[Rfam]
RNA sequence: CAGCCGGUGCGGCUGUAUUCCAAAUAGGUUUAAGAAUCGCCGCCGGCUGUCUGGACGCGUCGGGAUAAUGGCCGAUACUUCAAGUUACUGGCGCGCGGCAUCUCCCCCCAAGUGCCCAGCCAGUCGAGGAACCGUGGAUCGUGUUCCUUUGUUUUACUCCUAAUGGUCUUGACCCGGAUUCAUCCCCCAGAACCCGG
Numbered sequence: 001c002a003g004c005c006g007g008u009g010c011g012g013c014u015g016u017a018u019u020c021c022a023a024a025u026a027g028g029u030u031u032a033a034g035a036a037u038c039g040c041c042g043c044c045g046g047c048u049g050u051c052u053g054g055a056c057g058c059g060u061c062g063g064g065a066u067a068a069u070g071g072c073c074g075a076u077a078c079u080u081c082a083a084g085u086u087a088c089u090g091g092c093g094c095g096c097g098g099c100a101u102c103u104c105c106c107c108c109c110a111a112g113u114g115c116c117c118a119g120c121c122a123g124u125c126g127a128g129g130a131a132c133c134g135u136g137g138a139u140c141g142u143g144u145u146c147c148u149u150u151g152u153u154u155u156a157c158u159c160c161u162a163a164u165g166g167u168c169u170u171g172a173c174c175c176g177g178a179u180u181c182a183u184c185c186c187c188c189a190g191a192a193c194c195c196g197g
Stems, first nucleotide, its partner, number of pairs: 039168001041166001087124004094119001097116001099114003126149007133141001174197004179192003
RNA: RgsA sRNA